[Rfam]
RNA sequence: GCCUGGAUGAAUCUCGGUGGUCCGGGAUGCAGGCUUCAAACCUGUAGCCGUCUAGCGACGGAGUGGUUCGAUUCCGCCUUCCGGGU
Numbered sequence: 001g002c003c004u005g006g007a008u009g010a011a012u013c014u015c016g017g018u019g020g021u022c023c024g025g026g027a028u029g030c031a032g033g034c035u036u037c038a039a040a041c042c043u044g045u046a047g048c049c050g051u052c053u054a055g056c057g058a059c060g061g062a063g064u065g066g067u068u069c070g071a072u073u074c075c076g077c078c079u080u081c082c083g084g085g086u
Base pairs, nucleotide, nucleotide: 001086002085003084004083005082006081007080009078012027013026014025015024016023017022028046029045030044031043032042033041048061049060050059051058052057063077064076065075066074
The record is an 86-nucleotide sequence from Brugia malayi, which matches "Selenocysteine transfer RNA" in Rfam. Taxonomically the source falls in Brugia (Eukaryota, Metazoa, Nematoda, Rhabditida).